Description:
The record is a 52-nucleotide RNA from Pseudoruegeria aquimaris, which matches "ffh sRNA" in Rfam. For this family Rfam cites "Identification of candidate structured RNAs in the marine organism 'Candidatus Pelagibacter ubique'" (Meyer et al., BMC Genomics, 2009).

RNA sequence: CGUUUCAGGGAUCGCCCCCCGUCAGCGCGUCGCGCCCACGGGGGCCAUUGGC
Numbered sequence: 001c002g003u004u005u006c007a008g009g010g011a012u013c014g015c016c017c018c019c020c021g022u023c024a025g026c027g028c029g030u031c032g033c034g035c036c037c038a039c040g041g042g043g044g045c046c047a048u049u050g051g052c
Stems, first nucleotide, its partner, number of pairs: 016044007025035004

By type it is a small RNA.